[Rfam]
A member of the RNA family "tRNA" from Leucobacter soli, 73 nucleotides long. The family's consensus secondary structure is taken from published work. A search with the family's covariance model found it, with a score of 71 bits. From the family's description: Transfer RNA (tRNA) molecules are approximately 80 nucleotides in length. Rfam classes the family as a transfer RNA.

RNA sequence: GUGGCUAUAGCUCAGUUGGUAGAGCACCGGCUUGUGGUGCCGGUGGUCGCGGGUUCAAGUCCCGUUAGCCACC
Numbered sequence: 001g002u003g004g005c006u007a008u009a010g011c012u013c014a015g016u017u018g019g020u021a022g023a024g025c026a027c028c029g030g031c032u033u034g035u036g037g038u039g040c041c042g043g044u045g046g047u048c049g050c051g052g053g054u055u056c057a058a059g060u061c062c063c064g065u066u067a068g069c070c071a072c073c
Stems, first nucleotide, its partner, number of pairs: 001072007010025004027043005049065005